[Rfam]
RNA: TPP riboswitch aptamer (THI element)
Organism: Lysinibacillus composti
RNA sequence: AGAUAUUUGCAGGGGGACGCAGAUUACGCGUUGAGAAGGUAAAACCUGACCCUUAGAACCUGUUCGUUAAUACGAUUGUAGGGAGCAAAGUACAAACUAAA
Numbered sequence: 001a002g003a004u005a006u007u008u009g010c011a012g013g014g015g016g017a018c019g020c021a022g023a024u025u026a027c028g029c030g031u032u033g034a035g036a037a038g039g040u041a042a043a044a045c046c047u048g049a050c051c052c053u054u055a056g057a058a059c060c061u062g063u064u065c066g067u068u069a070a071u072a073c074g075a076u077u078g079u080a081g082g083g084a085g086c087a088a089a090g091u092a093c094a095a096a097c098u099a100a101a
Stems, first nucleotide, its partner, number of pairs: 006089005011053004016047001017031004038046003059082004064075003